About this RNA:
This 249-nucleotide sequence from Bemisia tabaci belongs to the Rfam family "Arthropod 7SK RNA".

RNA sequence: GGAUGUGUGUGUCAUGUGAUGGCACAGCUGAACAUCGAUUGCUUGCAUAGUCGUAUCAGCAAAGCAGAUCUGCUCAGUUGAGUGUCACACGUUGGCUUUCCAGAAGCACUCCGCUGCUCCCACAUCAUAGCGUGUGGUCGAGUGGCACCGAGCAGCUACUCGAACGCCGCGGAAGCAAUUAGCAUCUCAUAGGUAAUUUGUUCACAUCCAUAUAAUCGGCACUGCAGACUGCAGUACGCCAGUUUUUUG
Numbered sequence: 001g002g003a004u005g006u007g008u009g010u011g012u013c014a015u016g017u018g019a020u021g022g023c024a025c026a027g028c029u030g031a032a033c034a035u036c037g038a039u040u041g042c043u044u045g046c047a048u049a050g051u052c053g054u055a056u057c058a059g060c061a062a063a064g065c066a067g068a069u070c071u072g073c074u075c076a077g078u079u080g081a082g083u084g085u086c087a088c089a090c091g092u093u094g095g096c097u098u099u100c101c102a103g104a105a106g107c108a109c110u111c112c113g114c115u116g117c118u119c120c121c122a123c124a125u126c127a128u129a130g131c132g133u134g135u136g137g138u139c140g141a142g143u144g145g146c147a148c149c150g151a152g153c154a155g156c157u158a159c160u161c162g163a164a165c166g167c168c169g170c171g172g173a174a175g176c177a178a179u180u181a182g183c184a185u186c187u188c189a190u191a192g193g194u195a196a197u198u199u200g201u202u203c204a205c206a207u208c209c210a211u212a213u214a215a216u217c218g219g220c221a222c223u224g225c226a227g228a229c230u231g232c233a234g235u236a237c238g239c240c241a242g243u244u245u246u247u248u249g
Stems, first nucleotide, its partner, number of pairs: 001209007016088005028077003033072002037070004041065004218240003221235005
For this family Rfam cites "Arthropod 7SK RNA" (Gruber et al., Mol Biol Evol, 2008). The family is grouped with related families in Rfam's "7SK clan".